[Rfam]
A member of the RNA family "MicA sRNA" from Proteus myxofaciens, 73 nucleotides long. The family's RNA type in Rfam is small RNA. Pairs were carried over by alignment from the consensus structure, which was predicted with WAR. Gene Ontology term of the family: mRNA binding. The source organism's lineage runs through Bacteria, Pseudomonadati, Gammaproteobacteria, Proteus and Proteus myxofaciens.
Nucleotides: 073
Base pairs, nucleotide, nucleotide: 022038023037026034027033046069047068048067049066050065051064052063
Number, partner (000 for none) and nucleotide at each position: 001000g002000a003000a004000u005000a006000c007000g008000c009000g010000c011000a012000a013000u014000u015000g016000u017000u018000a019000u020000c021000a022038u023037c024000c025000c026034u027033a028000u029000u030000c031000u032000c033027u034026a035000u036000a037023g038022a039000a040000u041000u042000u043000u044000u045000u046069a047068g048067c049066c050065a051064c052063a053000c054000a055000a056000a057000u058000u059000u060000u061000a062000g063052u064051g065050u066049g067048g068047c069046u070000u071000u072000u073000u